[Rfam]
RNA sequence: GGCCUGUGAUGUAAUGACAAUAUUUGCUACUCUUGACACUUGUUGUGAAUGAUGUUAACUUCCACCAAGAUCGCUGAGGCC
Numbered sequence: 001g002g003c004c005u006g007u008g009a010u011g012u013a014a015u016g017a018c019a020a021u022a023u024u025u026g027c028u029a030c031u032c033u034u035g036a037c038a039c040u041u042g043u044u045g046u047g048a049a050u051g052a053u054g055u056u057a058a059c060u061u062c063c064a065c066c067a068a069g070a071u072c073g074c075u076g077a078g079g080c081c
Base pairs, nucleotide, nucleotide: 001081002080003079004078
The record is an 81-nucleotide sequence from Chara braunii, which matches "Small nucleolar RNA SNORD24" in Rfam. Gene Ontology terms of the family: nucleolus and RNA processing. A reference for the family is Qu et al. (1995), "U24, a novel intron-encoded small nucleolar RNA with two 12 nt long, phylogenetically conserved complementarities to 28S rRNA", Nucleic Acids Res. Pairs were carried over by alignment from the consensus structure, which was predicted with PFOLD. Rfam 15.1 lists 2,843 matches to the family in 1,188 species.